[Rfam]
RNA sequence: UCAUCAUCACCAUCACCCUGAAUAAUCUUUCAGGCGAUGGCUAUUGCUUGGAAGAUAGGACUUCCGAGCGAGUGUUGCCAAUCCUACUAAUUUAAAAAUUAGCGAUCUCUCGGAAGUUUCUUUCGAGAGAUUUUUUUA
Numbered sequence: 001u002c003a004u005c006a007u008c009a010c011c012a013u014c015a016c017c018c019u020g021a022a023u024a025a026u027c028u029u030u031c032a033g034g035c036g037a038u039g040g041c042u043a044u045u046g047c048u049u050g051g052a053a054g055a056u057a058g059g060a061c062u063u064c065c066g067a068g069c070g071a072g073u074g075u076u077g078c079c080a081a082u083c084c085u086a087c088u089a090a091u092u093u094a095a096a097a098a099u100u101a102g103c104g105a106u107c108u109c110u111c112g113g114a115a116g117u118u119u120c121u122u123u124c125g126a127g128a129g130a131u132u133u134u135u136u137u138a
Stems, first nucleotide, its partner, number of pairs: 008046002011039004017034005047068008101135002104132013